The record is a 75-nucleotide sequence from Xanthomonas campestris, which matches "Xanthomonas sRNA sX9" in Rfam. The family's RNA type in Rfam is small RNA. The match comes from Rfam's covariance-model search (76 bits). A reference for the family is Schmidtke et al. (2011), "Genome-wide transcriptome analysis of the plant pathogen Xanthomonas identifies sRNAs with putative virulence functions", Nucleic Acids Res.
[Rfam]
RNA sequence: AGGUACUGGCGGACACUCCGGUUCUUCCGCGUCGUCCGCACCCACCUGACGGCUGCUCGCUACGUUUUGUUGGCC
Numbered sequence: 001a002g003g004u005a006c007u008g009g010c011g012g013a014c015a016c017u018c019c020g021g022u023u024c025u026u027c028c029g030c031g032u033c034g035u036c037c038g039c040a041c042c043c044a045c046c047u048g049a050c051g052g053c054u055g056c057u058c059g060c061u062a063c064g065u066u067u068u069g070u071u072g073g074c075c
Base pairs, nucleotide, nucleotide: 003014004013006011019034020033021032022031024029046073047072048071049070050069051068052067